Annotation:
Rfam assigns this 128-nucleotide RNA from Oryza meyeriana to the family "MIR827 microRNA precursor family". It scores 76 bits against the family's covariance model.
RNA sequence: ACCUGUUUUGUUGAUGGUCAUCUACCCGUGCAUGCCUGCAUCUCUCUUCUCUUCUGCCUGGACAAUAAUAUGACAGUGCAGUCACCUGCUUGGGCACGCAUGGUUAGAUGACCAUCAGCAAACAAGUU
Numbered sequence: 001a002c003c004u005g006u007u008u009u010g011u012u013g014a015u016g017g018u019c020a021u022c023u024a025c026c027c028g029u030g031c032a033u034g035c036c037u038g039c040a041u042c043u044c045u046c047u048u049c050u051c052u053u054c055u056g057c058c059u060g061g062a063c064a065a066u067a068a069u070a071u072g073a074c075a076g077u078g079c080a081g082u083c084a085c086c087u088g089c090u091u092g093g094g095c096a097c098g099c100a101u102g103g104u105u106a107g108a109u110g111a112c113c114a115u116c117a118g119c120a121a122a123c124a125a126g127u128u
Stems, first nucleotide, its partner, number of pairs: 005123004010119015026103006